The record is an 87-nucleotide RNA sequence from Bacillus sp. PK3_68, which matches "BsrC" in Rfam. A search with the family's covariance model found it, with a score of 101 bits. By type it is a small RNA. About the family: The 301 nucleotide sequence from Kouji Nakamura has been trimmed to a highly conserved ~85 nucleotide long core to form this family. Lineage of the source: Bacteria > Bacillati > Bacillota > Bacilli > Bacillus. The family has 29 seed sequences and 572 matches in Rfam 15.1. A reference for the family is Saito et al. (2008), "Novel small RNA-encoding genes in the intergenic regions of Bacillus subtilis", Gene.
[Rfam]
RNA sequence: UAGUCCUGAAACAAUGAAAGCCCUGCCUCUCUUUCAUCCUUACGGCUCCUUGUCCGUGCCAGUGUGAAUCAGGAUUACAAAAAUCAA
Number, nucleotide and partner (000 for none) at each position: 001u000002a000003g000004u000005c000006c000007u000008g000009a000010a000011a000012c000013a000014a000015u000016g000017a000018a000019a000020g000021c000022c000023c000024u000025g000026c000027c000028u000029c000030u000031c000032u000033u000034u067035c066036a065037u000038c000039c062040u061041u058042a057043c056044g055045g054046c000047u052048c000049c000050u000051u000052g047053u000054c045055c044056g043057u042058g041059c000060c000061a040062g039063u000064g000065u036066g035067a034068a000069u000070c000071a000072g000073g000074a000075u000076u000077a000078c000079a000080a000081a000082a000083a000084u000085c000086a000087a000